[Rfam]
RNA sequence: GUGACAGAAGAGAGUGAGCACACAUAGUGGCUUUCUUGCAUAUUUGAAGAUCUCAUGCUUGAAGCUAUGUGUGCUCACUCUCUAUCUGUCAC
Numbered sequence: 001g002u003g004a005c006a007g008a009a010g011a012g013a014g015u016g017a018g019c020a021c022a023c024a025u026a027g028u029g030g031c032u033u034u035c036u037u038g039c040a041u042a043u044u045u046g047a048a049g050a051u052c053u054c055a056u057g058c059u060u061g062a063a064g065c066u067a068u069g070u071g072u073g074c075u076c077a078c079u080c081u082c083u084a085u086c087u088g089u090c091a092c
Base pairs, nucleotide, nucleotide: 001092002091003090004089005088006087007086008085010082011081012080013079014078015077016076017075018074019073020072021071023069024068025067026066027065

The family of this 92-nucleotide sequence from Brassica carinata is "mir-156 microRNA precursor family". For this family Rfam cites "microRNAs: tiny regulators with great potential" (Ambros, Cell, 2001). Its family is annotated with miRNA-mediated post-transcriptional gene silencing and RISC complex in the Gene Ontology. This family represents the plant microRNA (miRNA) precursor mir-156.